[Rfam]
RNA: Tick-borne Flavivirus exoribonuclease-resistant RNA element
RNA sequence: AGAGUGCAUUACGGCAGCACGCCAGUGAGAGUGGCGACGGGAAAAUGGUCGAUCCCGACGUAGGGCACUCUGAAAAAUUUUGUGAGACCCCC
Numbered sequence: 001a002g003a004g005u006g007c008a009u010u011a012c013g014g015c016a017g018c019a020c021g022c023c024a025g026u027g028a029g030a031g032u033g034g035c036g037a038c039g040g041g042a043a044a045a046u047g048g049u050c051g052a053u054c055c056c057g058a059c060g061u062a063g064g065g066c067a068c069u070c071u072g073a074a075a076a077a078u079u080u081u082g083u084g085a086g087a088c089c090c091c092c
Stems, first nucleotide, its partner, number of pairs: 001071007009063005020036005038057005
Dot-bracket structure: (((((((.(((((......(((((.......))))).(((((..........))))).))))).))))))).....................